The record is a 95-nucleotide RNA from Vibrio anguillarum, which matches "Qrr RNA" in Rfam. Its family is annotated with quorum sensing in the Gene Ontology. NCBI's taxonomy places the organism under Bacteria, Pseudomonadota, Gammaproteobacteria, Vibrionaceae, Vibrio. This family represents a set of small RNAs (the Qrr RNAs) that are thought to be involved in the regulation of quorum sensing in Vibrio species. It is believed that these RNAs, guided by a protein, Hfq, can mediate the destabilisation of the quorum-sensing master regulators LuxR/HapR mRNAs. The base pairs follow the family's consensus structure, which is taken from published work. Rfam 15.1 lists 148 matches to the family in 70 species.
RNA sequence: UGACCCUUAGGGGUCACCUAGCCAACUGACGUUGUUAGUGAAUAAAGUGUUCACAAAUAACAGCCAAUAGACCUUUUUCUAUUGGCUAUUUUUUU
Numbered sequence: 001u002g003a004c005c006c007u008u009a010g011g012g013g014u015c016a017c018c019u020a021g022c023c024a025a026c027u028g029a030c031g032u033u034g035u036u037a038g039u040g041a042a043u044a045a046a047g048u049g050u051u052c053a054c055a056a057a058u059a060a061c062a063g064c065c066a067a068u069a070g071a072c073c074u075u076u077u078u079c080u081a082u083u084g085g086c087u088a089u090u091u092u093u094u095u
Stems, first nucleotide, its partner, number of pairs: 001016006032060004038054007064085008

Source information:
The family's RNA type in Rfam is small RNA.